[Rfam]
RNA sequence: ACUGCUGAGCCAUCUCUCCAGCCCUAAAAGUAUUUUUAAUUAAAUAAAAAAUAAAUCUUAGGGGCUGGAGAGAUGGCUCAGUGGU
Numbered sequence: 001a002c003u004g005c006u007g008a009g010c011c012a013u014c015u016c017u018c019c020a021g022c023c024c025u026a027a028a029a030g031u032a033u034u035u036u037u038a039a040u041u042a043a044a045u046a047a048a049a050a051a052u053a054a055a056u057c058u059u060a061g062g063g064g065c066u067g068g069a070g071a072g073a074u075g076g077c078u079c080a081g082u083g084g085u
Stems, first nucleotide, its partner, number of pairs: 002084023
The family of this 85-nucleotide RNA from Nannospalax galili is "mir-3473 microRNA precursor family". The family's consensus secondary structure was predicted with RNAalifold. Lineage of the source: Eukaryota > Bilateria > Craniata > Euarchontoglires > Nannospalax. It scores 80 bits against the family's covariance model.